Rfam assigns this 104-nucleotide RNA sequence from Olavius algarvensis associated proteobacterium Delta 3 to the family "c-di-GMP-I-GGC riboswitch aptamer". The literature on the family includes a 2009 paper in Nat Struct Mol Biol by Smith et al., "Structural basis of ligand binding by a c-di-GMP riboswitch".
RNA sequence: AAUGACAAAGCCAAACCUGCCGUGAGACAGGGACGGAAAGCUACGGAUCUCUCAGGGGCGAAAGCCACAGAUCUGCGUAGUGAGAGAUAGCCGGGUUGCCUUGG
Numbered sequence: 001a002a003u004g005a006c007a008a009a010g011c012c013a014a015a016c017c018u019g020c021c022g023u024g025a026g027a028c029a030g031g032g033a034c035g036g037a038a039a040g041c042u043a044c045g046g047a048u049c050u051c052u053c054a055g056g057g058g059c060g061a062a063a064g065c066c067a068c069a070g071a072u073c074u075g076c077g078u079a080g081u082g083a084g085a086g087a088u089a090g091c092c093g094g095g096u097u098g099c100c101u102u103g104g
Base pairs, nucleotide, nucleotide: 004100011036012035016031017030018029019028021026034090039097040096041095042094044093045092046091047088048087049086050085051084052083053082054081